Rfam assigns this 71-nucleotide RNA sequence from Mus musculus to the family "mir-344 microRNA precursor family".
RNA sequence: UCAUUAGUCUGGUUGCUGGCUAUAUUCCAGGACUUAUCUGGUCCUGGAUAUAACCACUGCCAGACUGAAUG
Numbered sequence: 001u002c003a004u005u006a007g008u009c010u011g012g013u014u015g016c017u018g019g020c021u022a023u024a025u026u027c028c029a030g031g032a033c034u035u036a037u038c039u040g041g042u043c044c045u046g047g048a049u050a051u052a053a054c055c056a057c058u059g060c061c062a063g064a065c066u067g068a069a070u071g
Stems, first nucleotide, its partner, number of pairs: 007065003011061003017056003021052004027041005
On this family, see Chiang et al., Genes Dev 2010: "Mammalian microRNAs: experimental evaluation of novel and previously annotated genes". The family's consensus secondary structure was predicted with RNAalifold. Gene Ontology terms of the family: RISC complex and miRNA-mediated post-transcriptional gene silencing. NCBI's taxonomy places the organism under Eukaryota, Craniata, Rodentia, Murinae, Mus.